[Rfam]
RNA sequence: GAAGCAGGGAUUGUGUGUAUCGGUGAUGUGCUUUAUUGAUGCACCCUUAAGCCGGAAGAGUUCCCUGCAAUAUCUAAAAUCUAGGUGAGGGUGGGCAGUUGUGUACCAUUCUUUUCAGUUGGUAGCUCAACAAUCAUCAUCUCCACAUAU
Numbered sequence: 001g002a003a004g005c006a007g008g009g010a011u012u013g014u015g016u017g018u019a020u021c022g023g024u025g026a027u028g029u030g031c032u033u034u035a036u037u038g039a040u041g042c043a044c045c046c047u048u049a050a051g052c053c054g055g056a057a058g059a060g061u062u063c064c065c066u067g068c069a070a071u072a073u074c075u076a077a078a079a080u081c082u083a084g085g086u087g088a089g090g091g092u093g094g095g096c097a098g099u100u101g102u103g104u105a106c107c108a109u110u111c112u113u114u115u116c117a118g119u120u121g122g123u124a125g126c127u128c129a130a131c132a133a134u135c136a137u138c139a140u141c142u143c144c145a146c147a148u149a150u
Stems, first nucleotide, its partner, number of pairs: 004068007015044006084144002087141002090138005098131004